RNase MRP: a 273-nucleotide RNA sequence from Nannospalax galili.
The family's consensus secondary structure is taken from published work.
Rfam links the family to the GO terms rRNA processing, ribonuclease MRP complex and ribonuclease MRP activity.
It is annotated as a ribozyme.
RNA sequence: GCUCGCUCUGAAGGCCUGUUUCCUAGGCUACACACGAGGGACUUGUUCCUUACCCUUCCGCCUAGGGGAAAGUCCCCGGACCUUGGGCAGAGAGUGCCGCGUGUACAUGCACGUAGACCUCUCCCGCGUGUCACAGUUAGCCCGCCAAGAAGCGACCCGUCCUCUGCGGGGCAGCCGAGCGGCGUGCUGCGGGCCGUCCUCCGUCAGCUCUCAUAGUUACGCAGGCAGUGCGACCACACGCACCAACCGCACGGGGCUCAUUCUCAGCGCGGC
Numbered sequence: 001g002c003u004c005g006c007u008c009u010g011a012a013g014g015c016c017u018g019u020u021u022c023c024u025a026g027g028c029u030a031c032a033c034a035c036g037a038g039g040g041a042c043u044u045g046u047u048c049c050u051u052a053c054c055c056u057u058c059c060g061c062c063u064a065g066g067g068g069a070a071a072g073u074c075c076c077c078g079g080a081c082c083u084u085g086g087g088c089a090g091a092g093a094g095u096g097c098c099g100c101g102u103g104u105a106c107a108u109g110c111a112c113g114u115a116g117a118c119c120u121c122u123c124c125c126g127c128g129u130g131u132c133a134c135a136g137u138u139a140g141c142c143c144g145c146c147a148a149g150a151a152g153c154g155a156c157c158c159g160u161c162c163u164c165u166g167c168g169g170g171g172c173a174g175c176c177g178a179g180c181g182g183c184g185u186g187c188u189g190c191g192g193g194c195c196g197u198c199c200u201c202c203g204u205c206a207g208c209u210c211u212c213a214u215a216g217u218u219a220c221g222c223a224g225g226c227a228g229u230g231c232g233a234c235c236a237c238a239c240g241c242a243c244c245a246a247c248c249g250c251a252c253g254g255g256g257c258u259c260a261u262u263c264u265c266a267g268c269g270c271g272g273c
Stems, first nucleotide, its partner, number of pairs: 003272004008267004014226006022066007037051005071258002074256004086098004099114006116198003123193005132186003142182004166175002228243005